[Rfam]
RNA sequence: UCGCUCACAAAGUGGUUGUCAUGUGCGUUUCUAAGUCAUAUCACAGCCAGCUUUGAUGAGCGACA
Numbered sequence: 001u002c003g004c005u006c007a008c009a010a011a012g013u014g015g016u017u018g019u020c021a022u023g024u025g026c027g028u029u030u031c032u033a034a035g036u037c038a039u040a041u042c043a044c045a046g047c048c049a050g051c052u053u054u055g056a057u058g059a060g061c062g063a064c065a
Stems, first nucleotide, its partner, number of pairs: 005059003008055005013049007021041001024040002
About this RNA: The family of this 65-nucleotide RNA from Parnassius apollo is "mir-2 microRNA precursor family". Gene Ontology terms of the family: RISC complex and miRNA-mediated post-transcriptional gene silencing. NCBI's taxonomy places the organism under Eukaryota, Aparaglossata, Neolepidoptera, Papilionidae, Parnassius. On this family, see Lee and Ambros, Science 2001: "An extensive class of small RNAs in Caenorhabditis elegans".